[Rfam]
RNA sequence: AGCUCCACCGGAUCGACCGCGCGGGUCACCAUCAGGUAGUUGCGGAUCAUGAUCUCGUGCCGGUUCUC
Numbered sequence: 001a002g003c004u005c006c007a008c009c010g011g012a013u014c015g016a017c018c019g020c021g022c023g024g025g026u027c028a029c030c031a032u033c034a035g036g037u038a039g040u041u042g043c044g045g046a047u048c049a050u051g052a053u054c055u056c057g058u059g060c061c062g063g064u065u066c067u068c
Base pairs, nucleotide, nucleotide: 004063005062008059011030013028015027016026017025018024035056036055038053040052041051042050044048